A member of the RNA family "mir-7940 microRNA precursor family" from Panagrellus redivivus, 56 nucleotides long. Lineage of the source: Eukaryota > Bilateria > Chromadorea > Rhabditida > Panagrellus. It is one of the family's seed sequences.

[Rfam]
RNA sequence: GGAAGAUGCGUCUUCGUUCAUUUGCAUUUGUUAAUCACGCGGAUUGCAUCUUUCAA
Numbered sequence: 001g002g003a004a005g006a007u008g009c010g011u012c013u014u015c016g017u018u019c020a021u022u023u024g025c026a027u028u029u030g031u032u033a034a035u036c037a038c039g040c041g042g043a044u045u046g047c048a049u050c051u052u053u054c055a056a
Stems, first nucleotide, its partner, number of pairs: 001054010011043003015039003020035003024031002